[Rfam]
RNA sequence: GGUCAUGAGCGUCAGCGUCAAGCCCCGGCUGGCUGGCCGGCAACCCUCCAACCGCGGUGGGGUGCCCCGGGUGAUGACCAGGUCGUCCGUGGACACCGCGUCGGCAUCGCCGGCU
Numbered sequence: 001g002g003u004c005a006u007g008a009g010c011g012u013c014a015g016c017g018u019c020a021a022g023c024c025c026c027g028g029c030u031g032g033c034u035g036g037c038c039g040g041c042a043a044c045c046c047u048c049c050a051a052c053c054g055c056g057g058u059g060g061g062g063u064g065c066c067c068c069g070g071g072u073g074a075u076g077a078c079c080a081g082g083u084c085g086u087c088c089g090u091g092g093a094c095a096c097c098g099c100g101u102c103g104g105c106a107u108c109g110c111c112g113g114c115u
Stems, first nucleotide, its partner, number of pairs: 001079004009038001011037006021030002039066003044062003048057002082105004088100005
Shown here is a 115-nucleotide sequence from Tomitella fengzijianii, a member of the family "SAM (S-adenosyl methionine) riboswitch aptamer". The base pairs follow the family's consensus structure, which is taken from published work. Its Rfam clan is "SAM clan". A search with the family's covariance model found it, with a score of 97 bits.